Lysine riboswitch aptamer: a 165-nucleotide RNA sequence from Firmicutes bacterium M10-2. The base pairs follow the family's consensus structure, which is taken from published work. Gene Ontology term of the family: lysine biosynthetic process. The match comes from Rfam's covariance-model search (80 bits).
RNA sequence: ACCAAUGAUAGAGGCGCAAGAACGACUUCACCAAAAUGAGCAGGCAUGCAUUUGAGUUUUCGUGAGAGCAAUCUUGCCGAACUGCCUGUCCGGGCAUGGAAAGGCGGUGGGCCAAUGGAAAAUAUUCAUUGGACUGUCUACCUAGGUAGGAGUGCUAUCUUAUUG
Numbered sequence: 001a002c003c004a005a006u007g008a009u010a011g012a013g014g015c016g017c018a019a020g021a022a023c024g025a026c027u028u029c030a031c032c033a034a035a036a037u038g039a040g041c042a043g044g045c046a047u048g049c050a051u052u053u054g055a056g057u058u059u060u061c062g063u064g065a066g067a068g069c070a071a072u073c074u075u076g077c078c079g080a081a082c083u084g085c086c087u088g089u090c091c092g093g094g095c096a097u098g099g100a101a102a103g104g105c106g107g108u109g110g111g112c113c114a115a116u117g118g119a120a121a122a123u124a125u126u127c128a129u130u131g132g133a134c135u136g137u138c139u140a141c142c143u144a145g146g147u148a149g150g151a152g153u154g155c156u157a158u159c160u161u162a163u164u165g
Stems, first nucleotide, its partner, number of pairs: 007159005016077006024069001030063002033060005081108007089100004109135002112132008137150005